Notes
The family of this 75-nucleotide RNA from Scaptodrosophila lebanonensis is "mir-278 microRNA precursor family". The match comes from Rfam's covariance-model search (82 bits). Rfam links the family to the GO terms miRNA-mediated post-transcriptional gene silencing and RISC complex. The base pairs follow the family's consensus structure, which was predicted with RNAalifold.
[Rfam]
RNA sequence: GGUGCGACCGGAUGAUGGUUCACAACGACCGUACAUUUUUUCAACUGGUCGGUGGGACUUUCGUCCGUUUGUAAC
Numbered sequence: 001g002g003u004g005c006g007a008c009c010g011g012a013u014g015a016u017g018g019u020u021c022a023c024a025a026c027g028a029c030c031g032u033a034c035a036u037u038u039u040u041u042c043a044a045c046u047g048g049u050c051g052g053u054g055g056g057a058c059u060u061u062c063g064u065c066c067g068u069u070u071g072u073a074a075c
Base pairs, nucleotide, nucleotide: 003073004072005071006070007069009067010066011065012064013063014062015061017059018058019057020056021055023054024053026051027050028049029048030047